This 68-nucleotide RNA sequence from Salvator merianae belongs to the Rfam family "Small nucleolar RNA SNORD73". Rfam 15.1 lists 769 matches to the family in 586 species. By type it is a C/D-box small nucleolar RNA. The source organism's lineage runs through Eukaryota, Metazoa, Euteleostomi, Amniota and Salvator. Rfam links the family to the GO terms nucleolus and RNA processing.

RNA sequence: AAUGAGUGAUGACAAUUUGUUUCGGUCCCAGAUGAGAUCAUGAUUACUUUUUUUCAAAUGCUGACAUU
Numbered sequence: 001a002a003u004g005a006g007u008g009a010u011g012a013c014a015a016u017u018u019g020u021u022u023c024g025g026u027c028c029c030a031g032a033u034g035a036g037a038u039c040a041u042g043a044u045u046a047c048u049u050u051u052u053u054u055c056a057a058a059u060g061c062u063g064a065c066a067u068u
Base pairs, nucleotide, nucleotide: 001068002067003066004065